[Rfam]
RNA sequence: CCUAUUACUGCGACUGGAAAUGUAGAUUGUGAACGCAUCGGUUCGUACAAAGUCAAACUUUGCGGUUAUAUACGGU
Numbered sequence: 001c002c003u004a005u006u007a008c009u010g011c012g013a014c015u016g017g018a019a020a021u022g023u024a025g026a027u028u029g030u031g032a033a034c035g036c037a038u039c040g041g042u043u044c045g046u047a048c049a050a051a052g053u054c055a056a057a058c059u060u061u062g063c064g065g066u067u068a069u070a071u072a073c074g075g076u
Base pairs, nucleotide, nucleotide: 028047029046030045031044032043033042034041
RNA: RAGATH-26 RNA